[Rfam]
RNA sequence: UCCCUGGAGGACUAGCGGUUAGGCCACAGCAUUCUCACUGCUAUGGCCCGGGUUCGAUUCCUGGCCAGGGAA
Dot-bracket structure: (((((((..(.((........)).)..((((.......)))).....(((((.......)))))))))))).

Source information: tRNA: a 72-nucleotide RNA from Pangasianodon hypophthalmus. The family's consensus secondary structure is taken from published work. Rfam classes the family as a transfer RNA.